This 51-nucleotide RNA sequence from Luteimonas cucumeris belongs to the Rfam family "Xanthomonadaceae sRNA sX5". Rfam classes the family as a small RNA.

RNA sequence: CGAAGUUCGUAGGCUCCCCUCCCCCCUCACGGCUUCGGACUGGCGGGCUUC
Number, nucleotide and partner (000 for none) at each position: 001c000002g000003a000004a000005g000006u000007u046008c045009g044010u043011a000012g000013g040014c000015u039016c038017c037018c000019c000020u000021c000022c000023c000024c000025c032026c031027u000028c000029a000030c000031g026032g025033c000034u000035u000036c000037g017038g016039a015040c013041u000042g000043g010044c009045g008046g007047g000048c000049u000050u000051c000
NCBI's taxonomy places the organism under Bacteria, Pseudomonadota, Gammaproteobacteria, Lysobacterales, Luteimonas. The literature on the family includes a 2011 paper in Nucleic Acids Res by Schmidtke et al., "Genome-wide transcriptome analysis of the plant pathogen Xanthomonas identifies sRNAs with putative virulence functions".